[Rfam]
RNA sequence: AUGAUACAAGGGCAAAACCGCUGAAAAGUGGUGACGCAAAGCUAAAGGGUCUAAAUCACAUAGGUAUGUGACAGACAGCCAGUUGCUGGU
Numbered sequence: 001a002u003g004a005u006a007c008a009a010g011g012g013c014a015a016a017a018c019c020g021c022u023g024a025a026a027a028g029u030g031g032u033g034a035c036g037c038a039a040a041g042c043u044a045a046a047g048g049g050u051c052u053a054a055a056u057c058a059c060a061u062a063g064g065u066a067u068g069u070g071a072c073a074g075a076c077a078g079c080c081a082g083u084u085g086c087u088g089g090u
Stems, first nucleotide, its partner, number of pairs: 012037002017032006040084004047080002049076003056071006

The record is a 90-nucleotide sequence from Butyrivibrio sp. Su6, which matches "c-di-GMP-I riboswitch aptamer" in Rfam. The organism belongs to Butyrivibrio, within Bacteria.